[Rfam]
RNA sequence: CUUGUGGACUGUUAUAUCAAAUGAGAGUAGACGUUACACUUCACAGUGUAAAGACAAAAUCAGACAGGAUGAAGCAAGAA
Numbered sequence: 001c002u003u004g005u006g007g008a009c010u011g012u013u014a015u016a017u018c019a020a021a022u023g024a025g026a027g028u029a030g031a032c033g034u035u036a037c038a039c040u041u042c043a044c045a046g047u048g049u050a051a052a053g054a055c056a057a058a059a060u061c062a063g064a065c066a067g068g069a070u071g072a073a074g075c076a077a078g079a080a
Stems, first nucleotide, its partner, number of pairs: 001078005009067005022062003030055001032053001034051006
RNA: RAGATH-18 RNA